[Rfam]
The family of this 116-nucleotide sequence from Rhodanobacter sp. B05 is "t44 RNA". NCBI's taxonomy places the organism under Bacteria, Pseudomonadati, Lysobacterales, Rhodanobacteraceae, Rhodanobacter. On this family, see Tjaden et al., Nucleic Acids Res 2002: "Transcriptome analysis of Escherichia coli using high-density oligonucleotide probe arrays". The family's RNA type in Rfam is small RNA. Pairs were carried over by alignment from the consensus structure, which was predicted with LocARNA.

RNA sequence: AACACCCAACGCCAACGCCACACACGCAUCGGCACCGCCUUCGGGGUGCUGCGUCUCGCCCACCAUCAAAAUCGGGCGAGCCGCGGUCGAAGCCGGGGAUGCGUGGAGGUCCCAAC
Numbered sequence: 001a002a003c004a005c006c007c008a009a010c011g012c013c014a015a016c017g018c019c020a021c022a023c024a025c026g027c028a029u030c031g032g033c034a035c036c037g038c039c040u041u042c043g044g045g046g047u048g049c050u051g052c053g054u055c056u057c058g059c060c061c062a063c064c065a066u067c068a069a070a071a072u073c074g075g076g077c078g079a080g081c082c083g084c085g086g087u088c089g090a091a092g093c094c095g096g097g098g099a100u101g102c103g104u105g106g107a108g109g110u111c112c113c114a115a116c
Base pairs, nucleotide, nucleotide: 023105024104025103026102027101028100029099030098035096036095037094039092040091041090042089043088048087049086050085051084052083